[Rfam]
RNA sequence: UUCUUAUUCAGAGAGGUGGAGGGAAUUGGCCCUAAGAAACCUCGGCAGCGGACUGUUAAAAGUACUGUGCCAAAUCCAACAAGCUACUGUGCUUGGAAAAUAAGAA
Numbered sequence: 001u002u003c004u005u006a007u008u009c010a011g012a013g014a015g016g017u018g019g020a021g022g023g024a025a026u027u028g029g030c031c032c033u034a035a036g037a038a039a040c041c042u043c044g045g046c047a048g049c050g051g052a053c054u055g056u057u058a059a060a061a062g063u064a065c066u067g068u069g070c071c072a073a074a075u076c077c078a079a080c081a082a083g084c085u086a087c088u089g090u091g092c093u094u095g096g097a098a099a100a101u102a103a104g105a106a
Stems, first nucleotide, its partner, number of pairs: 001106008013043005021032003026079004044071004049067002051063001054060001075098001080095005
A member of the RNA family "SAM riboswitch aptamer (S box leader)" from Virgibacillus salexigens, 106 nucleotides long. From the family's description: The SAM riboswitch is found upstream of a number of genes which code for proteins involved in methionine or cysteine biosynthesis in Gram-positive bacteria. The source organism's lineage runs through Bacteria, Bacillati, Caryophanales, Bacillaceae and Virgibacillus. Pairs were carried over by alignment from the consensus structure, which is taken from published work.